The family of this 73-nucleotide RNA from Psylliodes chrysocephalus is "mir-970 microRNA precursor family". The source organism's lineage runs through Eukaryota, Eumetazoa, Eumetabola, Chrysomeloidea and Psylliodes. The family's consensus secondary structure was predicted with RNAalifold. The match comes from Rfam's covariance-model search (62 bits). Gene Ontology terms of the family: RISC complex and miRNA-mediated post-transcriptional gene silencing.
Nucleotides: 073
Stems, first nucleotide, its partner, number of pairs: 001073006008066004014062003019057004027050005
Number, partner (000 for none) and nucleotide at each position: 001073u002072g003071g004070c005069u006068g007000c008066a009065g010064c011063c012000g013000a014062g015061c016060g017000u018000u019057u020056g021055u022054c023000g024000u025000a026000c027050u028049g029048a030047u031046a032000g033000u034000g035000u036000u037000a038000u039000c040000a041000c042000u043000a044000g045000c046031u047030a048029u049028c050027a051000u052000a053000a054022g055021a056020c057019a058000c059000a060016c061015g062014c063011g064010g065009c066008u067000g068006u069005g070004g071003c072002u073001g